[Rfam]
RNA sequence: GGGGACGUUACGGAUUCGACAGGGAUAGUUCGAGCUUAAGUUGCGAGUCGAGGGGAUCGGCCUCGUUAAAACGUCAACGCCUAUAACUGGCAAACAAAACAACAACCUAGCUUUCGCUGCGUAACAACAGUCGUUAGCUGUUCCUCCCUCCAUGGCCCACGUGGUAGGGUAAGGGACUCACUCUAAGUGGGAUACGCCGGAAUCCACCGUCUGAGGAUGAAGGAAGAGACCAAUCAGACUAGCUGCUCUGCCGCCUGUCGAUAGGCUAAUGAGUUCGCGAAAUGCGAAUAUAUCGACUACACUCGUAGAAGCUUAAGUGCCGUUAUGUCUGGACGUGGGUUCGACUCCCACCGUCUCCACCA
Numbered sequence: 001g002g003g004g005a006c007g008u009u010a011c012g013g014a015u016u017c018g019a020c021a022g023g024g025a026u027a028g029u030u031c032g033a034g035c036u037u038a039a040g041u042u043g044c045g046a047g048u049c050g051a052g053g054g055g056a057u058c059g060g061c062c063u064c065g066u067u068a069a070a071a072c073g074u075c076a077a078c079g080c081c082u083a084u085a086a087c088u089g090g091c092a093a094a095c096a097a098a099a100c101a102a103c104a105a106c107c108u109a110g111c112u113u114u115c116g117c118u119g120c121g122u123a124a125c126a127a128c129a130g131u132c133g134u135u136a137g138c139u140g141u142u143c144c145u146c147c148c149u150c151c152a153u154g155g156c157c158c159a160c161g162u163g164g165u166a167g168g169g170u171a172a173g174g175g176a177c178u179c180a181c182u183c184u185a186a187g188u189g190g191g192a193u194a195c196g197c198c199g200g201a202a203u204c205c206a207c208c209g210u211c212u213g214a215g216g217a218u219g220a221a222g223g224a225a226g227a228g229a230c231c232a233a234u235c236a237g238a239c240u241a242g243c244u245g246c247u248c249u250g251c252c253g254c255c256u257g258u259c260g261a262u263a264g265g266c267u268a269a270u271g272a273g274u275u276c277g278c279g280a281a282a283u284g285c286g287a288a289u290a291u292a293u294c295g296a297c298u299a300c301a302c303u304c305g306u307a308g309a310a311g312c313u314u315a316a317g318u319g320c321c322g323u324u325a326u327g328u329c330u331g332g333a334c335g336u337g338g339g340u341u342c343g344a345c346u347c348c349c350a351c352c353g354u355c356u357c358c359a360c361c362a
Base pairs, nucleotide, nucleotide: 001358002357003356004355005354006353007352020331021330022329023328025326026325027324028323029322032320034318035317036316037315038314039313040312041311042310044305045304046303047302048301049065050064051063052062053061055075056074057073112136115133116131117130118129119128140177141176142175143174144173145172146169147168148167149166150164151163152162153161156191157190158189159188160187197223198222202218203217204216205215209240212237242278243277245274246273247272248271253266254265255264257297258296259295260294261291262290263289335351336350337349338348339347
A member of the RNA family "transfer-messenger RNA" from Peribacillus muralis, 362 nucleotides long.
The source organism's lineage runs through Bacteria, Bacillati, Bacilli, Bacillaceae and Peribacillus.
Clan: tRNA clan.
Rfam describes the family as follows. Bacterial tmRNA, also known as 10Sa RNA or SsrA, is named for its dual tRNA and mRNA-like properties. Its role is to liberate the mRNA from a stalled ribosome.
It is annotated as a non-coding RNA gene.
The family's consensus secondary structure is taken from published work.